[Rfam]
RNA sequence: AGCGUCUCAGAUGAGACUGUUCGUAUAUCUUCGGCAUGACGGGCCGGGGGUCUCUACAAGGAACCGAUAAUUCCUGGCUACGAGCGGCGGGUUUUCCAUA
Dot-bracket structure: .................((((((((...(((((((.......))))))).........(((((.......)))))...))))))))..............
RNA: Purine riboswitch aptamer